Overview:
A member of the RNA family "mir-223 microRNA precursor family" from Anguilla anguilla, 106 nucleotides long. The source organism's lineage runs through Eukaryota, Teleostomi, Elopocephala, Elopomorpha and Anguilla.
RNA sequence: GCUGAGAAUGAAGGCCCCCCACUUAGUGUAUUUGACAAGCUGAGUGGGACACUCGGUAUGGUAGGGUGUCAGUUUGUCAAAUACCCCAAGUGAGAGGUCACUAAUC
Numbered sequence: 001g002c003u004g005a006g007a008a009u010g011a012a013g014g015c016c017c018c019c020c021a022c023u024u025a026g027u028g029u030a031u032u033u034g035a036c037a038a039g040c041u042g043a044g045u046g047g048g049a050c051a052c053u054c055g056g057u058a059u060g061g062u063a064g065g066g067u068g069u070c071a072g073u074u075u076g077u078c079a080a081a082u083a084c085c086c087c088a089a090g091u092g093a094g095a096g097g098u099c100a101c102u103a104a105u106c
Stems, first nucleotide, its partner, number of pairs: 020092004026086001028084014048070004053065002